[Rfam]
The record is a 150-nucleotide RNA from Solanum lycopersicum, which matches "small nucleolar RNA snoR134" in Rfam. Lineage of the source: Eukaryota > Tracheophyta > eudicotyledons > asterids > Solanum subgen. Lycopersicon. Rfam classes the family as an H/ACA-box small nucleolar RNA.

Nucleotides: 150
Base pairs, nucleotide, nucleotide: 003065004064005063006062007061010059011058017053018052019051020050021049022047025043026042077143078142079141080140082138085133086132088130089129090128091127092126097121098120099119
Number, partner (000 for none) and nucleotide at each position: 001000u002000u003065g004064c005063a006062c007061g008000u009000a010059g011058c012000c013000u014000c015000c016000c017053g018052g019051g020050c021049u022047c023000a024000u025043c026042u027000g028000a029000g030000u031000u032000u033000a034000c035000a036000a037000a038000g039000u040000g041000a042026a043025g044000u045000u046000a047022g048000a049021a050020g051019c052018c053017c054000c055000a056000a057000a058011g059010c060000u061007c062006g063005u064004g065003c066000u067000a068000a069000a070000u071000u072000u073000a074000a075000c076000c077143g078142c079141c080140g081000c082138u083000a084000g085133u086132g087000u088130u089129g090128c091127a092126g093000u094000u095000u096000a097121g098120c099119c100000c101000u102000u103000u104000g105000u106000a107000c108000c109000u110000u111000c112000u113000a114000u115000u116000c117000a118000u119099g120098g121097c122000u123000a124000a125000u126092u127091u128090g129089u130088g131000u132086c133085a134000a135000a136000u137000c138082a139000a140080c141079g142078g143077c144000a145000a146000a147000a148000u149000c150000c